[Rfam]
RNA sequence: UGGCUGGAGGACGAGGAGCUGGUCUCCUACAUCCUUACCGGCCUAGACCUUGACUUCAACCUAGUGGUGUCUGCCGUCGCCACCAGGGUUGAAUCCAUAUCUGUUGGUGAGUUGUAUACUCAGUUGGUUAGCUUUGAGC
Numbered sequence: 001u002g003g004c005u006g007g008a009g010g011a012c013g014a015g016g017a018g019c020u021g022g023u024c025u026c027c028u029a030c031a032u033c034c035u036u037a038c039c040g041g042c043c044u045a046g047a048c049c050u051u052g053a054c055u056u057c058a059a060c061c062u063a064g065u066g067g068u069g070u071c072u073g074c075c076g077u078c079g080c081c082a083c084c085a086g087g088g089u090u091g092a093a094u095c096c097a098u099a100u101c102u103g104u105u106g107g108u109g110a111g112u113u114g115u116a117u118a119c120u121c122a123g124u125u126g127g128u129u130a131g132c133u134u135u136g137a138g139c
Base pairs, nucleotide, nucleotide: 004138005137007135008134088108089107090106091105092104
RNA: Small nucleolar RNA Z247